RNA sequence: UGAUUUCUUAAAAAUCACCGGGCCUUACUAAAGACCCCAAGUACAAUUUUUGCAACCCUGUCCUUCGGGUCAGGGA
Numbered sequence: 001u002g003a004u005u006u007c008u009u010a011a012a013a014a015u016c017a018c019c020g021g022g023c024c025u026u027a028c029u030a031a032a033g034a035c036c037c038c039a040a041g042u043a044c045a046a047u048u049u050u051u052g053c054a055a056c057c058c059u060g061u062c063c064u065u066c067g068g069g070u071c072a073g074g075g076a
Stems, first nucleotide, its partner, number of pairs: 020037003024033003056075005062069002